Shown here is an 86-nucleotide RNA sequence from Trema andersonii, a member of the family "Small nucleolar RNA Z122".
[Rfam]
RNA sequence: UUUGGGAGAUGAUGAUACAAUACAAACAAAUUAUCAAAGCACCAGCAAUGCUGAAUUGUUUAUUUGCACGUCAGUCUGAUCCCAUA
Numbered sequence: 001u002u003u004g005g006g007a008g009a010u011g012a013u014g015a016u017a018c019a020a021u022a023c024a025a026a027c028a029a030a031u032u033a034u035c036a037a038a039g040c041a042c043c044a045g046c047a048a049u050g051c052u053g054a055a056u057u058g059u060u061u062a063u064u065u066g067c068a069c070g071u072c073a074g075u076c077u078g079a080u081c082c083c084a085u086a
Base pairs, nucleotide, nucleotide: 001086003084004083005082006081007080

The match comes from Rfam's covariance-model search (68 bits). On this family, see Chen et al., Nucleic Acids Res 2003: "The high diversity of snoRNAs in plants: identification and comparative study of 120 snoRNA genes from Oryza sativa".